[Rfam]
Source information:
This 93-nucleotide RNA from Actinidia chinensis belongs to the Rfam family "Small nucleolar RNA U54". Clan: U54 clan. The match comes from Rfam's covariance-model search (51 bits). On this family, see Chen et al., Nucleic Acids Res 2003: "The high diversity of snoRNAs in plants: identification and comparative study of 120 snoRNA genes from Oryza sativa". By type it is a C/D-box small nucleolar RNA. The organism belongs to Actinidia chinensis, within Eukaryota. Rfam describes the family as follows. U54 is a C/D box small nucleolar RNA, which acts as a methylation guide for 18S ribosomal RNA in plants. Gene Ontology terms of the family: nucleolus and RNA processing.
RNA sequence: GGCUCUGUGAUUACAUGCCUGAUUUAUGGGCAAUAUACGCUAUUCUGAUACAAAUCGUGAGUUGAAAAGUUUAUGAGAAAAUAAAUGAGAGCU
Numbered sequence: 001g002g003c004u005c006u007g008u009g010a011u012u013a014c015a016u017g018c019c020u021g022a023u024u025u026a027u028g029g030g031c032a033a034u035a036u037a038c039g040c041u042a043u044u045c046u047g048a049u050a051c052a053a054a055u056c057g058u059g060a061g062u063u064g065a066a067a068a069g070u071u072u073a074u075g076a077g078a079a080a081a082u083a084a085a086u087g088a089g090a091g092c093u
Stems, first nucleotide, its partner, number of pairs: 001093005